[Rfam]
RNA sequence: CUCUUAUCAAGAGAGGCGGAGGGACAGACCCGAUGAAGCCCGGCAACCUACCCGAUCAUGGAGGUGUGGUGCCAAAUUCUGCAGAGUAAUUCUCUGGCAGAUGAGAG
Numbered sequence: 001c002u003c004u005u006a007u008c009a010a011g012a013g014a015g016g017c018g019g020a021g022g023g024a025c026a027g028a029c030c031c032g033a034u035g036a037a038g039c040c041c042g043g044c045a046a047c048c049u050a051c052c053c054g055a056u057c058a059u060g061g062a063g064g065u066g067u068g069g070u071g072c073c074a075a076a077u078u079c080u081g082c083a084g085a086g087u088a089a090u091u092c093u094c095u096g097g098c099a100g101a102u103g104a105g106a107g
Base pairs, nucleotide, nucleotide: 001107002106003105004104005103006102007101008100013041015040016039017038021031022030023029025081026080027079028078042073043072044071045070047069048068049066050065051064052063077099082096083095084094085093086092
Shown here is a 107-nucleotide RNA from Marininema mesophilum, a member of the family "SAM riboswitch aptamer (S box leader)". Taxonomically the source falls in Marininema (Bacteria, Bacillati, Bacilli, Caryophanales). The base pairs follow the family's consensus structure, which is taken from published work.